[Rfam]
Nucleotides: 126
Base pairs, nucleotide, nucleotide: 003054004053005052006051007050008049009048010047011046020045021044022043024040025039026038027037028036066120068118069117070116071115085100086099087098088097
Number, partner (000 for none) and nucleotide at each position: 001000c002000a003054g004053a005052c006051g007050u008049u009048u010047a011046u012000u013000u014000u015000u016000a017000u018000u019000c020045a021044g022043u023000g024040u025039u026038u027037u028036c029000u030000c031000a032000a033000g034000g035000u036028g037027a038026a039025g040024g041000u042000a043022a044021c045020u046011g047010u048009a049008a050007a051006u052005g053004u054003c055000c056000u057000a058000g059000a060000g061000a062000a063000a064000u065000a066120u067000u068118g069117u070116a071115g072000c073000u074000u075000u076000a077000u078000g079000u080000u081000c082000a083000c084000c085100c086099u087098u088097u089000g090000c091000a092000a093000c094000u095000a096000a097088a098087a099086a100085g101000c102000g103000u104000g105000g106000a107000u108000c109000g110000u111000u112000c113000c114000a115071c116070u117069a118068c119000u120066g121000a122000g123000a124000u125000u126000u